The record is an 87-nucleotide RNA sequence from Theobroma umbraticum, which matches "Small nucleolar RNA snoR53Y" in Rfam. The literature on the family includes a 2001 paper in RNA by Brown et al., "Multiple snoRNA gene clusters from Arabidopsis". It is annotated as a C/D-box small nucleolar RNA.
RNA sequence: GUUCCCGAUGAUGGUUAAAAUUAUAUAACCAUGCUAAUGCUGAUAAUCCAAUGAUUAAAUCAUUAAUUUAUACAUUCUGAGGGAACU
Numbered sequence: 001g002u003u004c005c006c007g008a009u010g011a012u013g014g015u016u017a018a019a020a021u022u023a024u025a026u027a028a029c030c031a032u033g034c035u036a037a038u039g040c041u042g043a044u045a046a047u048c049c050a051a052u053g054a055u056u057a058a059a060u061c062a063u064u065a066a067u068u069u070a071u072a073c074a075u076u077c078u079g080a081g082g083g084a085a086c087u
Stems, first nucleotide, its partner, number of pairs: 001086005